[Rfam]
RNA sequence: CUCUGGAAAGCGGGUGCGUGCCAGCCUUGGUUGGUGCGUGCCUCACCGAAGAUGUAAGCCGCCGCGCGGGCGUUCACCGCUCCACCGGUCCGGUCAAUCUUUCAGGUUCCAUGACAGAG
Dot-bracket structure: (((((......(((((((((((..........))))))))))).(((((..(.(...((((.............................))))....).))).))).......)))))
Glycine riboswitch aptamer: a 119-nucleotide RNA from Roseospira marina. Taxonomically the source falls in Roseospira (Bacteria, Pseudomonadati, Alphaproteobacteria, Rhodospirillaceae).